[Rfam]
This 140-nucleotide RNA sequence from Pelusios castaneus belongs to the Rfam family "Small nucleolar RNA SNORA8". Gene Ontology terms of the family: RNA processing and nucleolus. The family has 5 seed sequences and 1,490 matches in Rfam 15.1. The base pairs follow the family's consensus structure, which was predicted with RNAfold. By type it is an H/ACA-box small nucleolar RNA. Rfam describes the family as follows. ACA8 is a member of the H/ACA class of snoRNA that guide the sites of modification of uridines to pseudouridines. The family is grouped with related families in Rfam's "SNORA8 clan". The organism belongs to Pelusios, within Eukaryota.
Nucleotides: 140
Stems, first nucleotide, its partner, number of pairs: 002061006015054001017052001018047006024040001026038003064129003068125003071121004080109005
Number, partner (000 for none) and nucleotide at each position: 001000u002061g003060c004059a005058c006057u007056g008000u009000u010000u011000g012000g013000u014000a015054u016000c017052u018047g019046c020045a021044u022043c023042c024040a025000c026038c027037a028036g029000u030000a031000a032000u033000c034000u035000c036028c037027u038026g039000a040024u041000g042023g043022g044021a045020u046019g047018u048000u049000c050000a051000a052017a053000a054015a055000g056007c057006a058005g059004u060003g061002c062000u063000a064129u065128a066127g067000u068125a069124a070123u071121c072120c073119a074118g075000c076000g077000c078000u079000u080109g081108g082107c083106a084105u085000c086000g087000u088000u089000g090000g091000u092000u093000u094000u095000u096000c097000a098000u099000g100000c101000u102000g103000u104000u105084g106083u107082g108081c109080u110000u111000g112000u113000u114000a115000a116000a117000c118074c119073u120072g121071g122000u123070a124069u125068u126000u127066c128065u129064g130000u131000u132000g133000g134000g135000a136000c137000a138000u139000g140000u